[Rfam]
RNA sequence: UCGUUAAGUGAUGACGUGACAAAUAGAGUGUCAUGUCAUCACACUCCAUUAUUGUCACGUCAACAAAGGUGAUGGCAUGACAAUGAGGUGUCACUGAUUAGACGUGAUGACAUGACACUCUAUUUGUCACGUCAUUACUUAACAGAU
Numbered sequence: 001u002c003g004u005u006a007a008g009u010g011a012u013g014a015c016g017u018g019a020c021a022a023a024u025a026g027a028g029u030g031u032c033a034u035g036u037c038a039u040c041a042c043a044c045u046c047c048a049u050u051a052u053u054g055u056c057a058c059g060u061c062a063a064c065a066a067a068g069g070u071g072a073u074g075g076c077a078u079g080a081c082a083a084u085g086a087g088g089u090g091u092c093a094c095u096g097a098u099u100a101g102a103c104g105u106g107a108u109g110a111c112a113u114g115a116c117a118c119u120c121u122a123u124u125u126g127u128c129a130c131g132u133c134a135u136u137a138c139u140u141a142a143c144a145g146a147u
Base pairs, nucleotide, nucleotide: 001145003143004142005141006140007139008138009137010136011135012134013133014132015131016130017129018128019127020126021125022124023123024122025121026120027119028118029117030116031115032114033113034112035111036110037109038108039107040106041105042104045101048098049097050096051095054092056090057089058088059076060075061074062073
RNA: MIR4371 microRNA precursor family
Organism: Glycine max